The family of this 83-nucleotide sequence from Momordica charantia is "Small nucleolar RNA Z103". The literature on the family includes a 2003 paper in Nucleic Acids Res by Chen et al., "The high diversity of snoRNAs in plants: identification and comparative study of 120 snoRNA genes from Oryza sativa". Taxonomically the source falls in Momordica (Eukaryota, Streptophytina, eudicotyledons, Momordiceae). The match comes from Rfam's covariance-model search (59 bits).
RNA sequence: AUGGAUGUGAUGACACUUUCCCCAAAUGAUCGAAGCUGAUUAUACUAUGCUCUGGUGUAUUAUCACAUUCUGUUCUGAUCCAU
Dot-bracket structure: (((((.........................................................................)))))
Numbered sequence: 001a002u003g004g005a006u007g008u009g010a011u012g013a014c015a016c017u018u019u020c021c022c023c024a025a026a027u028g029a030u031c032g033a034a035g036c037u038g039a040u041u042a043u044a045c046u047a048u049g050c051u052c053u054g055g056u057g058u059a060u061u062a063u064c065a066c067a068u069u070c071u072g073u074u075c076u077g078a079u080c081c082a083u
Stems, first nucleotide, its partner, number of pairs: 001083005